[Rfam]
RNA sequence: AAAGACUGAGGUCGGCUAAGAUCGCAACGUCCUUUUGCAACGCCGAUACUAGCAUAUCCUGUGCG
Numbered sequence: 001a002a003a004g005a006c007u008g009a010g011g012u013c014g015g016c017u018a019a020g021a022u023c024g025c026a027a028c029g030u031c032c033u034u035u036u037g038c039a040a041c042g043c044c045g046a047u048a049c050u051a052g053c054a055u056a057u058c059c060u061g062u063g064c065g
Stems, first nucleotide, its partner, number of pairs: 011047006024038004052064004
RNA: Bacillaceae-1 RNA